[Rfam]
RNA sequence: UGCCUAAACCCUGCCUUCUCGGCAGGGCAUGGCACUAAUACCCAACGAAGACACUGAACCUCGCGUUCAGCAGCUCUUCGUUGGGCUAUAUCCCGAAAGGGGUAUAGGGCCGUAAGGCCU
Numbered sequence: 001u002g003c004c005u006a007a008a009c010c011c012u013g014c015c016u017u018c019u020c021g022g023c024a025g026g027g028c029a030u031g032g033c034a035c036u037a038a039u040a041c042c043c044a045a046c047g048a049a050g051a052c053a054c055u056g057a058a059c060c061u062c063g064c065g066u067u068c069a070g071c072a073g074c075u076c077u078u079c080g081u082u083g084g085g086c087u088a089u090a091u092c093c094c095g096a097a098a099g100g101g102g103u104a105u106a107g108g109g110c111c112g113u114a115a116g117g118c119c120u
Stems, first nucleotide, its partner, number of pairs: 001034004009027007041085011054070006087106008107120005
Rfam assigns this 120-nucleotide RNA to the family "LOOT RNA". By type it is a small RNA. The sequence is in the family's curated seed alignment.